The record is a 110-nucleotide RNA sequence from Microbacterium thalassium, which matches "TPP riboswitch aptamer (THI element)" in Rfam. Rfam's curators write: Vitamin B(1) in its active form thiamin pyrophosphate (TPP) is an essential coenzyme that is synthesised by coupling of pyrimidine and thiazole moieties in bacteria.
[Rfam]
RNA sequence: CACAGAAACCACGGGAGUCCGGUGUGCCGGGCUGAGAGGAAGCGAACCGCGCUUCGACCGUCGAACCUGAUCCGGAUCAUGCCGGCGCAGGGAGGAGUCAUAUGAACACG
Numbered sequence: 001c002a003c004a005g006a007a008a009c010c011a012c013g014g015g016a017g018u019c020c021g022g023u024g025u026g027c028c029g030g031g032c033u034g035a036g037a038g039g040a041a042g043c044g045a046a047c048c049g050c051g052c053u054u055c056g057a058c059c060g061u062c063g064a065a066c067c068u069g070a071u072c073c074g075g076a077u078c079a080u081g082c083c084g085g086c087g088c089a090g091g092g093a094g095g096a097g098u099c100a101u102a103u104g105a106a107c108a109c110g
Stems, first nucleotide, its partner, number of pairs: 006098001009095002011061004017032005039055005066091004072085004
Dot-bracket structure: .....(..((((((..(((((......)))))......(((((.......)))))..))))....((((..((((......))))..))))..))..)............